[Rfam]
RNA sequence: UCUAGAAAUCCAGAUAUGGGUAAAAUUCUAAGCAGUAUUUGGGUUGGAUUGUAGGACAAAUUCUAACUUUUCUUUUGUGGCCAAACUUUGAAUUUGAAAAUGGCAAAUUUGGGUCUUUCCCUAUGCAUGAAAGUUGUAGGUCUAUUUCUUAUCUUUCUAGC
Dot-bracket structure: .((((((((..(((.((((((.(.(..((.....((....(.(.......(.(((((.((.(.(..((....((..((.............))..))....)).).).))..))))).)..).)..))...)).).).).))))).))).))..)))))).
The record is a 161-nucleotide RNA sequence from Populus alba, which matches "MIR2912 microRNA precursor family" in Rfam. Gene Ontology terms of the family: RISC complex and miRNA-mediated post-transcriptional gene silencing. The family has 2 seed sequences and 15,051 matches in Rfam 15.1. The match comes from Rfam's covariance-model search (77 bits).